[Rfam]
RNA sequence: UGUUGUCAUCAUAACAACUGCCUAUGUUCCAGUGAAUUGAGAGAAACGCCUUGGGGUAACCACAUCCAAAUGUCAUCAUUACCUGAGAGAUGACGCUAUCGGGCGGUAACAAAUCCGUUUAACCUUUAAAAUAGAGCACCGGUCCUUU
Number, nucleotide and partner (000 for none) at each position: 001u000002g018003u017004u016005g015006u014007c000008a000009u000010c000011a000012u000013a000014a006015c005016a004017a003018c002019u000020g000021c000022c000023u000024a000025u000026g047027u046028u045029c000030c043031a000032g063033u062034g061035a000036a000037u058038u000039g000040a000041g000042a000043g030044a000045a028046a027047c026048g057049c056050c055051u000052u000053g000054g000055g050056g049057u048058a037059a000060c000061c034062a033063c032064a000065u000066c000067c000068a000069a000070a000071u000072g094073u093074c092075a091076u090077c000078a000079u109080u108081a107082c106083c105084u000085g000086a000087g000088a000089g000090a076091u075092g074093a073094c072095g104096c103097u102098a000099u000100c000101g000102g097103g096104c095105g083106g082107u081108a080109a079110c000111a000112a000113a000114u135115c134116c000117g132118u131119u000120u000121a000122a000123c000124c000125u000126u000127u000128a000129a000130a000131a118132u117133a000134g115135a114136g000137c000138a148139c000140c000141g000142g000143u000144c000145c000146u000147u000148u138
Rfam assigns this 148-nucleotide RNA sequence from Pantoea ananatis to the family "STAXI RNA". Pairs were carried over by alignment from the consensus structure, which is taken from published work.